[Rfam]
RNA: tRNA
Organism: Seinonella peptonophila
RNA sequence: GCGAACGUGGCUCAGGGGUAGAGCAUCGCCUUGCCAAGGCGAGGGUCGAGGGUUCGAAUCCCUUCGUUCGCU
Numbered sequence: 001g002c003g004a005a006c007g008u009g010g011c012u013c014a015g016g017g018g019u020a021g022a023g024c025a026u027c028g029c030c031u032u033g034c035c036a037a038g039g040c041g042a043g044g045g046u047c048g049a050g051g052g053u054u055c056g057a058a059u060c061c062c063u064u065c066g067u068u069c070g071c072u
Base pairs, nucleotide, nucleotide: 001071002070003069004068005067006066007065010024011023012022013021026042027041028040029039030038048064049063050062051061052060